RNA sequence: GCACAGGCUUGGUCUAGUGGUUACUUCGUUUGCGACGACUUUCUCUGGCAUUGGCUGGGGCAACCACGGAUGCUGUCCUGUGUUUUU
Numbered sequence: 001g002c003a004c005a006g007g008c009u010u011g012g013u014c015u016a017g018u019g020g021u022u023a024c025u026u027c028g029u030u031u032g033c034g035a036c037g038a039c040u041u042u043c044u045c046u047g048g049c050a051u052u053g054g055c056u057g058g059g060g061c062a063a064c065c066a067c068g069g070a071u072g073c074u075g076u077c078c079u080g081u082g083u084u085u086u087u
Stems, first nucleotide, its partner, number of pairs: 002082006012071004017067004026063001
Rfam assigns this 87-nucleotide RNA sequence from Argiope bruennichi to the family "Vault RNA". It scores 42 bits against the family's covariance model. Taxonomically the source falls in Argiope (Eukaryota, Eumetazoa, Ecdysozoa, Orbiculariae).